RNA sequence: GGCGGUGUGCUGCUCAGCCCGUUUUUGCUUUAUGUGUUGUUGGCGCUGCUGCUCACCGGCCUGCUGCGCCUGGUGGUGCAUGCCACACCGUUGGGGCGCUGGAUCUGGCAUGAAGCGCUGUUCGACGCAGCGCUG
Number, nucleotide and partner (000 for none) at each position: 001g000002g067003c066004g065005g064006u063007g062008u000009g060010c059011u058012g052013c051014u000015c048016a047017g046018c045019c043020c042021g041022u000023u039024u000025u000026u000027g000028c000029u000030u000031u000032a000033u000034g000035u000036g000037u000038u000039g023040u000041u021042g020043g019044c000045g018046c017047u016048g015049c000050u000051g013052c012053u000054c000055a000056c000057c000058g011059g010060c009061c000062u007063g006064c005065u004066g003067c002068g133069c132070c000071u000072g000073g000074u000075g097076g000077u095078g000079c093080a092081u000082g000083c000084c000085a000086c000087a000088c000089c000090g000091u000092u080093g079094g000095g077096g000097c075098g131099c130100u129101g128102g000103a000104u125105c124106u000107g000108g121109c120110a119111u000112g000113a000114a000115g000116c000117g000118c000119u110120g109121u108122u000123c000124g105125a104126c000127g000128c101129a100130g099131c098132g069133c068134u000135g000

Record summary
Rfam assigns this 135-nucleotide RNA sequence from Pseudomonas putida to the family "Pseudomonas sRNA P18". The family's RNA type in Rfam is small RNA. The literature on the family includes a 2006 paper in Nucleic Acids Res by Livny et al., "Identification of 17 Pseudomonas aeruginosa sRNAs and prediction of sRNA-encoding genes in 10 diverse pathogens using the bioinformatic tool sRNAPredict2".